[Rfam]
RNA: CRISPR RNA direct repeat element
RNA sequence: GUUGCGAACCCUCCAGGGUGAUGAGCGAC
Number, nucleotide and partner (000 for none) at each position: 001g029002u028003u027004g026005c025006g000007a019008a000009c018010c017011c016012u000013c000014c000015a000016g011017g010018g009019u007020g000021a000022u000023g000024a000025g005026c004027g003028a002029c001